[Rfam]
RNA sequence: AUGGUCCGGCAAACGGUCGCGGCUCAGCGACGUGAGUCGAGGAAAGUCCGGACACCGUAGGGCAGGAUGGUGGGUAACGCCCACUCGGGGUAACCCGCAGGCUAGUGCAACAGAAAGUAAACCGCCCCUGUUGGGUAAGGGUGAAACGGUGGUGUAAGAGACCACCAGCGUUGCUGGUGACAGCAACGGCUUGGUAAACCCCAUCCGGUGCAAAACCAAGUAGGGUGCCAACUCGUGGCCCGCGAGACGCACCCGGGUUGGUUGCUAGAGUCCUGCAGCAAUGCAGUCUGACCUAGAUGGAUGACCGUUACCGUGGGCUUGGCAACGAGCCCACGGCACAGGAUCCGGCUUAUCGCCGGUCCAUCCCA
Numbered sequence: 001a002u003g004g005u006c007c008g009g010c011a012a013a014c015g016g017u018c019g020c021g022g023c024u025c026a027g028c029g030a031c032g033u034g035a036g037u038c039g040a041g042g043a044a045a046g047u048c049c050g051g052a053c054a055c056c057g058u059a060g061g062g063c064a065g066g067a068u069g070g071u072g073g074g075u076a077a078c079g080c081c082c083a084c085u086c087g088g089g090g091u092a093a094c095c096c097g098c099a100g101g102c103u104a105g106u107g108c109a110a111c112a113g114a115a116a117g118u119a120a121a122c123c124g125c126c127c128c129u130g131u132u133g134g135g136u137a138a139g140g141g142u143g144a145a146a147c148g149g150u151g152g153u154g155u156a157a158g159a160g161a162c163c164a165c166c167a168g169c170g171u172u173g174c175u176g177g178u179g180a181c182a183g184c185a186a187c188g189g190c191u192u193g194g195u196a197a198a199c200c201c202c203a204u205c206c207g208g209u210g211c212a213a214a215a216c217c218a219a220g221u222a223g224g225g226u227g228c229c230a231a232c233u234c235g236u237g238g239c240c241c242g243c244g245a246g247a248c249g250c251a252c253c254c255g256g257g258u259u260g261g262u263u264g265c266u267a268g269a270g271u272c273c274u275g276c277a278g279c280a281a282u283g284c285a286g287u288c289u290g291a292c293c294u295a296g297a298u299g300g301a302u303g304a305c306c307g308u309u310a311c312c313g314u315g316g317g318c319u320u321g322g323c324a325a326c327g328a329g330c331c332c333a334c335g336g337c338a339c340a341g342g343a344u345c346c347g348g349c350u351u352a353u354c355g356c357c358g359g360u361c362c363a364u365c366c367c368a
Stems, first nucleotide, its partner, number of pairs: 001364004006359005011353001012309007020039007044351003048348005053210004060241004065206005070084005085099001086097004100201002105199002107195002122140002124136004148166006168190001169188008214263004223254006232246005270292003273286005
The record is a 368-nucleotide RNA, which matches "Bacterial RNase P class A" in Rfam. The family's RNA type in Rfam is ribozyme.